The record is an 82-nucleotide sequence from Mizuhopecten yessoensis, which matches "Small nucleolar RNA R21" in Rfam. Rfam 15.1 lists 472 matches to the family in 146 species. Taxonomically the source falls in Mizuhopecten (Eukaryota, Opisthokonta, Lophotrochozoa, Pectinida). It scores 45 bits against the family's covariance model. It is annotated as a C/D-box small nucleolar RNA. On this family, see Barneche et al., J Mol Biol 2001: "Identification of 66 box C/D snoRNAs in Arabidopsis thaliana: extensive gene duplications generated multiple isoforms predicting new ribosomal RNA 2'-O-methylation sites".
[Rfam]
RNA sequence: UUUCGUAAUGAAGAGUUAAUAUAAUAAAGGAUGUUAAAAUUAGUGCUGAUUAAUUCUGUUGAUCGAUUAACGCUUAGCGAAG
Number, nucleotide and partner (000 for none) at each position: 001u082002u081003u080004c079005g078006u077007a000008a000009u000010g000011a000012a000013g000014a000015g000016u000017u000018a000019a000020u000021a000022u000023a000024a000025u000026a000027a000028a000029g000030g000031a000032u000033g000034u000035u000036a000037a000038a000039a000040u000041u000042a000043g000044u000045g000046c000047u000048g000049a000050u000051u000052a000053a000054u000055u000056c000057u000058g000059u000060u000061g000062a000063u000064c000065g000066a000067u000068u000069a000070a000071c000072g000073c000074u000075u000076a000077g006078c005079g004080a003081a002082g001